[Rfam]
RNA: ZMP/ZTP riboswitch aptamer (pfl RNA motif)
Organism: Kitasatospora aureofaciens
RNA sequence: CCGGUGGACCGCGACUGGCGCGUAGGGAUGGAAUCGACCAUCGGGAAGCGGUCCCGUGGAUCCGCACGUCGUUGCCGAGCGCCUGGGCCGCCCGC
Numbered sequence: 001c002c003g004g005u006g007g008a009c010c011g012c013g014a015c016u017g018g019c020g021c022g023u024a025g026g027g028a029u030g031g032a033a034u035c036g037a038c039c040a041u042c043g044g045g046a047a048g049c050g051g052u053c054c055c056g057u058g059g060a061u062c063c064g065c066a067c068g069u070c071g072u073u074g075c076c077g078a079g080c081g082c083c084u085g086g087g088c089c090g091c092c093c094g095c
Stems, first nucleotide, its partner, number of pairs: 003057001006054007015045002017083005028041004072090001074088003